The family of this 81-nucleotide RNA from Zizania palustris is "Small nucleolar RNA R16". On this family, see Galardi et al., Mol Cell Biol 2002: "Purified box C/D snoRNPs are able to reproduce site-specific 2'-O-methylation of target RNA in vitro". The base pairs follow the family's consensus structure, which was predicted with PFOLD. The family's RNA type in Rfam is C/D-box small nucleolar RNA.

RNA sequence: AAUAGCAUAUGAUGCAUAAUCUUAUCCUACACACUGAAUGCAAUGUGUGGACUAAUACUCUGCUUAUUACCUGAUGCCAUU
Numbered sequence: 001a002a003u004a005g006c007a008u009a010u011g012a013u014g015c016a017u018a019a020u021c022u023u024a025u026c027c028u029a030c031a032c033a034c035u036g037a038a039u040g041c042a043a044u045g046u047g048u049g050g051a052c053u054a055a056u057a058c059u060c061u062g063c064u065u066a067u068u069a070c071c072u073g074a075u076g077c078c079a080u081u
Base pairs, nucleotide, nucleotide: 003079005077006076007075